[Rfam]
RNA: Plastid-ccsA-ndhD-2 3UTR RNA
Organism: Carya illinoinensis
RNA sequence: UUUGUAAGAACCUUUUGAAUCACUAGUUUGAUUCAAAAGGUUCUUACAA
Dot-bracket structure: ...(((((((((((((((((((......)))))))))))))))))))..